[Rfam]
RNA sequence: UCCAACAGUAGUCAGAUGUCUGGACAGAACCAUAUGGUGUUACACUGCUGGGAGAAGAAUGUCUUCUCUUCAUCCAGUUGCGUCCAUCACUGUUCUGGUGGUGUCUGGCACUGGUGCAAGGCAGAACUGUGCUUCCUUGAGAGUGUGCUGAGCAUUCACCUUGGCUGCUUGGUUCUAGUCUGGGAGCAGACACA
Numbered sequence: 001u002c003c004a005a006c007a008g009u010a011g012u013c014a015g016a017u018g019u020c021u022g023g024a025c026a027g028a029a030c031c032a033u034a035u036g037g038u039g040u041u042a043c044a045c046u047g048c049u050g051g052g053a054g055a056a057g058a059a060u061g062u063c064u065u066c067u068c069u070u071c072a073u074c075c076a077g078u079u080g081c082g083u084c085c086a087u088c089a090c091u092g093u094u095c096u097g098g099u100g101g102u103g104u105c106u107g108g109c110a111c112u113g114g115u116g117c118a119a120g121g122c123a124g125a126a127c128u129g130u131g132c133u134u135c136c137u138u139g140a141g142a143g144u145g146u147g148c149u150g151a152g153c154a155u156u157c158a159c160c161u162u163g164g165c166u167g168c169u170u171g172g173u174u175c176u177a178g179u180c181u182g183g184g185a186g187c188a189g190a191c192a193c194a
Stems, first nucleotide, its partner, number of pairs: 001052004006047004011043002015038001017036003021032002061127002064124002067121003075116002078113001079110003085103007130188007145175001147173001149171006

Source information: The record is a 194-nucleotide RNA from Pan troglodytes, which matches "Small nucleolar RNA SNORA74" in Rfam. It is annotated as an H/ACA-box small nucleolar RNA. From the family's description: U19 belongs to the H/ACA class of snoRNAs. snoRNAs bind a number of proteins (including dyskerin, Gar1p and Nop10p in the case of the H/ACA class) to form snoRNP complexes. A search with the family's covariance model found it, with a score of 90 bits. The source organism's lineage runs through Eukaryota, Chordata, Euarchontoglires, Simiiformes and Pan. For this family Rfam cites "The family of box ACA small nucleolar RNAs is defined by an evolutionarily conserved secondary structure and ubiquitous sequence elements essential for RNA accumulation" (Ganot et al., Genes Dev, 1997).